[Rfam]
RNA: Group II catalytic intron D1-D4-2
RNA sequence: GGAGGGGUUCUGAUCCUCCGGAGUCGCCUUACGUGGAGGUGGCUUCAAAUCACCUACCGGUGCCUUAGCUGAAGACUGUGGUGUUGAACGGCGUGGGAAAAGGCGUGGCUGUGACUGCGUCAGA
Numbered sequence: 001g002g003a004g005g006g007g008u009u010c011u012g013a014u015c016c017u018c019c020g021g022a023g024u025c026g027c028c029u030u031a032c033g034u035g036g037a038g039g040u041g042g043c044u045u046c047a048a049a050u051c052a053c054c055u056a057c058c059g060g061u062g063c064c065u066u067a068g069c070u071g072a073a074g075a076c077u078g079u080g081g082u083g084u085u086g087a088a089c090g091g092c093g094u095g096g097g098a099a100a101a102g103g104c105g106u107g108g109c110u111g112u113g114a115c116u117g118c119g120u121c122a123g124a
Stems, first nucleotide, its partner, number of pairs: 001019005020046006027039004050124002053097005058091001059085002062082003066078003102121006